Shown here is a 171-nucleotide RNA sequence from Halogeometricum borinquense, a member of the family "Sense overlapping transcript RNA 0042 (sot)". The literature on the family includes a 2015 paper in RNA Biol by Gomes-Filho et al., "Sense overlapping transcripts in IS1341-type transposase genes are functional non-coding RNAs in archaea". About the family: It is associated with IS1341-type transposase (tnpB) genes, at the 3'-end in H. salinarum NRC-1. The tetraloop structural motif may be functional. The family's RNA type in Rfam is small RNA.
RNA sequence: AAGUAUCUCCGAGUCCCGUUACGGAUGGCGAUGAUAGGAGUAACAGCGGUUGGUAUAGUCAUCGACGCACCUGUUUGAUUUAGAGAGUGAUUGCUUCACACCACGAGAACAGGCUACGCUGUAAACCACAAUAUCCCCACAUUGGGGAAUUCCCGCCCUUCGGGGUGGGAG
Number, nucleotide and partner (000 for none) at each position: 001a000002a000003g044004u043005a000006u000007c040008u039009c038010c037011g000012a000013g035014u034015c033016c000017c030018g029019u028020u027021a026022c000023g000024g000025a000026u021027g020028g019029c018030g017031a000032u000033g015034a014035u013036a000037g010038g009039a008040g007041u000042a000043a004044c003045a000046g059047c058048g056049g000050u000051u000052g000053g000054u000055a000056u048057a000058g047059u046060c000061a000062u000063c121064g120065a000066c118067g117068c000069a000070c113071c112072u111073g110074u109075u108076u107077g000078a000079u000080u000081u000082a000083g000084a000085g000086a000087g000088u000089g102090a000091u100092u000093g000094c000095u000096u000097c000098a000099c000100a091101c000102c089103a000104c000105g000106a000107g076108a075109a074110c073111a072112g071113g070114c000115u000116a000117c067118g066119c000120u064121g063122u000123a000124a000125a000126c000127c000128a000129c000130a000131a000132u000133a000134u148135c147136c146137c145138c000139a143140c000141a000142u000143u139144g000145g137146g136147g135148a134149a000150u171151u170152c169153c168154c167155g166156c165157c164158c163159u000160u000161c000162g000163g158164g157165g156166u155167g154168g153169g152170a151171g150